Record summary:
A member of the RNA family "6S / SsrS RNA" from Paenibacillus sp. 598K, 183 nucleotides long. By type it is a non-coding RNA gene. It scores 81 bits against the family's covariance model. The organism belongs to Paenibacillus, within Bacteria. E. coli 6S RNA was the first non coding RNA to be sequenced, but its function was unknown until recently. It consists of 184 nucleotides that fold into an extended hairpin structure with a large single-stranded internal bulge. The 6S RNA specifically associates with RNA polymerase holoenzyme containing the sigma70 specificity factor. This interaction represses expression from a sigma70-dependent promoter during stationary phase. 6S RNA homologs have recently been identified in most bacterial genomes. Pairs were carried over by alignment from the consensus structure, which is taken from published work.
[Rfam]
RNA sequence: UACAUCCUGCGGUGUGCGUUACGGCAUUUCCUUGUUUUGAACCAAUGGCUGAAUGAAGGGAGACCUACAUCGAGAUGCAGCUGUCAUGCCCCCGAAAAGGGACUUCAAAAGCGUCUCUGCGGUCACCCACCUGCGAGAGCGGGUUCAGAAACAAGCUUGCCGGACGGCAAACGCGGGGAUGUC
Numbered sequence: 001u002a003c004a005u006c007c008u009g010c011g012g013u014g015u016g017c018g019u020u021a022c023g024g025c026a027u028u029u030c031c032u033u034g035u036u037u038u039g040a041a042c043c044a045a046u047g048g049c050u051g052a053a054u055g056a057a058g059g060g061a062g063a064c065c066u067a068c069a070u071c072g073a074g075a076u077g078c079a080g081c082u083g084u085c086a087u088g089c090c091c092c093c094g095a096a097a098a099g100g101g102a103c104u105u106c107a108a109a110a111g112c113g114u115c116u117c118u119g120c121g122g123u124c125a126c127c128c129a130c131c132u133g134c135g136a137g138a139g140c141g142g143g144u145u146c147a148g149a150a151a152c153a154a155g156c157u158u159g160c161c162g163g164a165c166g167g168c169a170a171a172c173g174c175g176g177g178g179a180u181g182u183c
Base pairs, nucleotide, nucleotide: 005178006177007176008175009174010173011172013169014168015167017166018165019164034152035151036150037149038147039146040145041144042143043142058128059127060126062124063123064122065121069118072117073116074115075114076113077112078111089101090100091099